Shown here is a 78-nucleotide sequence from Galemys pyrenaicus, a member of the family "Small nucleolar RNA SNORD83".
[Rfam]
Nucleotides: 078
Stems, first nucleotide, its partner, number of pairs: 001077004031041004
Number, partner (000 for none) and nucleotide at each position: 001077g002076c003075c004074a005000c006000a007000u008000g009000a010000u011000g012000u013000g014000u015000u016000c017000c018000u019000u020000u021000g022000g023000a024000c025000a026000a027000g028000u029000g030000a031041g032040c033039g034038c035000u036000u037000c038034g039033c040032g041031c042000c043000a044000u045000g046000a047000u048000g049000a050000c051000c052000u053000u054000u055000a056000u057000c058000u059000a060000u061000c062000a063000c064000c065000c066000u067000g068000g069000a070000c071000u072000g073000a074004u075003g076002g077001c078000u

Overview: Gene Ontology terms of the family: nucleolus and RNA processing. A reference for the family is Jady and Kiss (2000), "Characterisation of the U83 and U84 small nucleolar RNAs: two novel 2'-O-ribose methylation guide RNAs that lack complementarities to ribosomal RNAs", Nucleic Acids Res. NCBI's taxonomy places the organism under Eukaryota, Dipnotetrapodomorpha, Tetrapoda, Eulipotyphla, Galemys. The family's consensus secondary structure was predicted with PFOLD.